[Rfam]
RNA sequence: GAUCGCGGUGAUGACUCCAUAACUUCAAGCUCAACAGACCGGAAUGCAGGCUUCUCAUAUUUUUGAUAACGUUGCGUGUCGACCACCCCGUUGAACUGAGCGAUC
Numbered sequence: 001g002a003u004c005g006c007g008g009u010g011a012u013g014a015c016u017c018c019a020u021a022a023c024u025u026c027a028a029g030c031u032c033a034a035c036a037g038a039c040c041g042g043a044a045u046g047c048a049g050g051c052u053u054c055u056c057a058u059a060u061u062u063u064u065g066a067u068a069a070c071g072u073u074g075c076g077u078g079u080c081g082a083c084c085a086c087c088c089c090g091u092u093g094a095a096c097u098g099a100g101c102g103a104u105c
Base pairs, nucleotide, nucleotide: 001105002104003103004102005101006100
A member of the RNA family "Small nucleolar RNA Z107/R87" from Gossypium hirsutum, 105 nucleotides long.
Gene Ontology terms of the family: nucleolus and RNA processing.
The family has 9 seed sequences and 783 matches in Rfam 15.1.
The match comes from Rfam's covariance-model search (78 bits).
Taxonomically the source falls in Gossypium (Eukaryota, Pentapetalae, rosids, Malvoideae).
On this family, see Barneche et al., J Mol Biol 2001: "Identification of 66 box C/D snoRNAs in Arabidopsis thaliana: extensive gene duplications generated multiple isoforms predicting new ribosomal RNA 2'-O-methylation sites".